[Rfam]
RNA sequence: UGAUGGCGUUCCCUGUGGUGUUGCAAGUCACCAACAUUCGCAGUUUUUGUCCGUCAUAUAACAAACAUGGUCUUUAUUUACCCAAUCUCUACCUGGCAGUGCUUUUUUAUUUUUUUUUUCACUCUGAAUCUGCCAUUUUUGUUGAGAUUGGAUUUGCGGGGCCAAACAUUG
Numbered sequence: 001u002g003a004u005g006g007c008g009u010u011c012c013c014u015g016u017g018g019u020g021u022u023g024c025a026a027g028u029c030a031c032c033a034a035c036a037u038u039c040g041c042a043g044u045u046u047u048u049g050u051c052c053g054u055c056a057u058a059u060a061a062c063a064a065a066c067a068u069g070g071u072c073u074u075u076a077u078u079u080a081c082c083c084a085a086u087c088u089c090u091a092c093c094u095g096g097c098a099g100u101g102c103u104u105u106u107u108u109a110u111u112u113u114u115u116u117u118u119u120c121a122c123u124c125u126g127a128a129u130c131u132g133c134c135a136u137u138u139u140u141g142u143u144g145a146g147a148u149u150g151g152a153u154u155u156g157c158g159g160g161g162c163c164a165a166a167c168a169u170u171g
Stems, first nucleotide, its partner, number of pairs: 001056006007049001013043005019036004069163006082151008091142001095138001

This 171-nucleotide RNA sequence from Capitella teleta belongs to the Rfam family "Small nucleolar RNA SNORA79". From the family's description: ACA65 (SNORA79) is a member of the H/ACA class of snoRNAs that guide the sites of modification of uridines to pseudouridines. This snoRNA was identified by computational screening and its expression in mouse experimentally verified by Northern blot and primer extension analysis. On this family, see Schattner et al., RNA 2006: "A computational screen for mammalian pseudouridylation guide H/ACA RNAs". Gene Ontology terms of the family: nucleolus and RNA processing. Rfam 15.1 lists 944 matches to the family in 375 species.